Shown here is an 82-nucleotide sequence from Roseibacillus persicicus, a member of the family "tRNA". Lineage of the source: Bacteria > Verrucomicrobiota > Verrucomicrobiales > Verrucomicrobiaceae > Roseibacillus.
RNA sequence: GCCAGCGUGGCGGAAUUGGUAGACGCGCGCGAUUCAAAAUCGCGUUUCUUCGGAAGUAUGGGUUCGAUUCCCAUCGCUGGUA
Number, nucleotide and partner (000 for none) at each position: 001g081002c080003c079004a078005g077006c076007g075008u000009g000010g026011c025012g024013g000014a000015a000016u000017u000018g000019g000020u000021a000022g000023a000024c012025g011026c010027g000028c044029g043030c042031g041032a040033u000034u000035c000036a000037a000038a000039a000040u032041c031042g030043c029044g028045u000046u000047u000048c000049u000050u000051c000052g000053g000054a000055a000056g000057u000058a074059u073060g072061g071062g070063u000064u000065c000066g000067a000068u000069u000070c062071c061072c060073a059074u058075c007076g006077c005078u004079g003080g002081u001082a000